[Rfam]
RNA sequence: CAACGGCGCCUGAUCACGCCGUCGUCUGAAAGCCGGCUCGUCCCCCGCCGCUUCAGACCGGGCAAGGGCCUUUCCCCCUCUCCGGGCCUUUGCCGCUUAUAAGAGCCGCCAUGACCGAUCCCCCUCCCGGUCAUGGCGGUUUCGC
Numbered sequence: 001c002a003a004c005g006g007c008g009c010c011u012g013a014u015c016a017c018g019c020c021g022u023c024g025u026c027u028g029a030a031a032g033c034c035g036g037c038u039c040g041u042c043c044c045c046c047g048c049c050g051c052u053u054c055a056g057a058c059c060g061g062g063c064a065a066g067g068g069c070c071u072u073u074c075c076c077c078c079u080c081u082c083c084g085g086g087c088c089u090u091u092g093c094c095g096c097u098u099a100u101a102a103g104a105g106c107c108g109c110c111a112u113g114a115c116c117g118a119u120c121c122c123c124c125u126c127c128c129g130g131u132c133a134u135g136g137c138g139g140u141u142u143c144g145c
Base pairs, nucleotide, nucleotide: 025057026056027055028054029053030052035049036048037047061094062093063092064091065090066089067088068087069086070085103141106139107138108137109136110135111134112133113132114131115130116129117128
Notes:
This 145-nucleotide RNA from Endobacterium cereale belongs to the Rfam family "Alphaproteobacterial sRNA ar7". A reference for the family is del Val et al. (2012), "A survey of sRNA families in alpha-proteobacteria", RNA Biol. It scores 98 bits against the family's covariance model. Rfam classes the family as a small RNA. NCBI's taxonomy places the organism under Bacteria, Pseudomonadati, Alphaproteobacteria, Hyphomicrobiales, Endobacterium. The base pairs follow the family's consensus structure.